Shown here is a 210-nucleotide sequence from Magnetospirillum aberrantis, a member of the family "permuted transfer-messenger RNA". By type it is a non-coding RNA gene. Rfam's curators write: Bacterial tmRNA, also known as 10Sa RNA or SsrA, is named for its dual tRNA and mRNA-like properties. Its role is to liberate the mRNA from a stalled ribosome.

[Rfam]
RNA sequence: GGCGCUAAACGCUAUACGGAAUAGGCCUUGCGGACCCGGGGGCGGUACCCGGCGCCUCCACCAAUUUCCGGCUUCGGCCGGGUCUUCGGGGGCGAAACAGGAUCGACGCGGGUAGUAAAGGUAUGGUUUGCGCUCGGCAUGGUAUCCACCGUUAUCGGGCUAAACUCAACAAGUGCCAACGACAACGUUGAACUUGCCGCUGCGGCUUAA
Numbered sequence: 001g002g003c004g005c006u007a008a009a010c011g012c013u014a015u016a017c018g019g020a021a022u023a024g025g026c027c028u029u030g031c032g033g034a035c036c037c038g039g040g041g042g043c044g045g046u047a048c049c050c051g052g053c054g055c056c057u058c059c060a061c062c063a064a065u066u067u068c069c070g071g072c073u074u075c076g077g078c079c080g081g082g083u084c085u086u087c088g089g090g091g092g093c094g095a096a097a098c099a100g101g102a103u104c105g106a107c108g109c110g111g112g113u114a115g116u117a118a119a120g121g122u123a124u125g126g127u128u129u130g131c132g133c134u135c136g137g138c139a140u141g142g143u144a145u146c147c148a149c150c151g152u153u154a155u156c157g158g159g160c161u162a163a164a165c166u167c168a169a170c171a172a173g174u175g176c177c178a179a180c181g182a183c184a185a186c187g188u189u190g191a192a193c194u195u196g197c198c199g200c201u202g203c204g205g206c207u208u209a210a
Stems, first nucleotide, its partner, number of pairs: 001134005014124004026112003030109003036052005053094007135151003